This 125-nucleotide RNA from Phytoamicus setariae belongs to the Rfam family "Alphaproteobacterial ar14". Taxonomically the source falls in Phytoamicus (Bacteria, Pseudomonadota, Hyphomicrobiales, Rhizobiaceae).
RNA sequence: AGAAUUCGGAGCAAGCGCACUCCUCCUCCCAGCGCCCUCCGAUUUGACUGACGACACUCCUCCUCCCAGUCGUCAGUCAUACCCAACGACGCCCACCGGAUCUCCUCCCCCGGUGGGCGUUUUGU
Numbered sequence: 001a002g003a004a005u006u007c008g009g010a011g012c013a014a015g016c017g018c019a020c021u022c023c024u025c026c027u028c029c030c031a032g033c034g035c036c037c038u039c040c041g042a043u044u045u046g047a048c049u050g051a052c053g054a055c056a057c058u059c060c061u062c063c064u065c066c067c068a069g070u071c072g073u074c075a076g077u078c079a080u081a082c083c084c085a086a087c088g089a090c091g092c093c094c095a096c097c098g099g100a101u102c103u104c105c106u107c108c109c110c111c112g113g114u115g116g117g118c119g120u121u122u123u124g125u
Base pairs, nucleotide, nucleotide: 007041008040009039011037015035016034017033018032046078047077048076049075050074051073052072053071054070055069089120090119091118092117093116094115095114096113097112098111099110
It scores 108 bits against the family's covariance model. The literature on the family includes a 2012 paper in RNA Biol by del Val et al., "A survey of sRNA families in alpha-proteobacteria". Pairs were carried over by alignment from the consensus structure. Smr14C2 was renamed NfeR1 (Nodule Formation Efficiency RNA) highly expressed in salt stress and during the symbiotic interaction on legume roots.